Record summary
This 116-nucleotide RNA from Pseudoalteromonas denitrificans belongs to the Rfam family "Group II catalytic intron D1-D4-2". Rfam's curators write: Group II introns are found in rRNA, tRNA and mRNA of organelles in fungi, plants and protists, and also in mRNA in bacteria.

RNA sequence: GGAAGUAGGCCUUCCGUAUUCGCUUUACAGGAGGAGAAUACAAACCACCUCAAGCUGCUAUGGUUAAAAGCCAUGGUAGUGAGCGUUGAGGAAAAGGCAACUUUAAGUUGUCAGGU
Numbered sequence: 001g002g003a004a005g006u007a008g009g010c011c012u013u014c015c016g017u018a019u020u021c022g023c024u025u026u027a028c029a030g031g032a033g034g035a036g037a038a039u040a041c042a043a044a045c046c047a048c049c050u051c052a053a054g055c056u057g058c059u060a061u062g063g064u065u066a067a068a069a070g071c072c073a074u075g076g077u078a079g080u081g082a083g084c085g086u087u088g089a090g091g092a093a094a095a096g097g098c099a100a101c102u103u104u105a106a107g108u109u110g111u112c113a114g115g116u
Base pairs, nucleotide, nucleotide: 001015002014003013004012005011016041017040018039019038020037021036023034024033025032026031046115048091049090050089051088052087053086054080055079057077058076059075061073062072063071064070096112097111098110099109100108101107
Taxonomically the source falls in Pseudoalteromonas denitrificans (Bacteria, Gammaproteobacteria, Alteromonadales, Pseudoalteromonas). On this family, see Bonen and Vogel, Trends Genet 2001: "The ins and outs of group II introns".